[Rfam]
Background:
Shown here is a 107-nucleotide sequence from Diachasma alloeum, a member of the family "MIR6274 microRNA precursor family". The base pairs follow the family's consensus structure, which was predicted with RNAalifold. The source organism's lineage runs through Eukaryota, Mandibulata, Altocrustacea, Insecta and Diachasma. Rfam 15.1 lists 342 matches to the family in 8 species.
RNA sequence: AAAAAAAAGUUUUUUUCAAUCUCCGCACUUUGGAGAAUUCAUAUGAAAAAAAAUUUUUUUUCAUAUGAAUUCUCCAAAGUGCGGAGGUUGAAAAAAAAUUUCUUUUC
Numbered sequence: 001a002a003a004a005a006a007a008a009g010u011u012u013u014u015u016u017c018a019a020u021c022u023c024c025g026c027a028c029u030u031u032g033g034a035g036a037a038u039u040c041a042u043a044u045g046a047a048a049a050a051a052a053a054u055u056u057u058u059u060u061u062c063a064u065a066u067g068a069a070u071u072c073u074c075c076a077a078a079g080u081g082c083g084g085a086g087g088u089u090g091a092a093a094a095a096a097a098a099u100u101u102c103u104u105u106u107c
Stems, first nucleotide, its partner, number of pairs: 002106004012095009022085029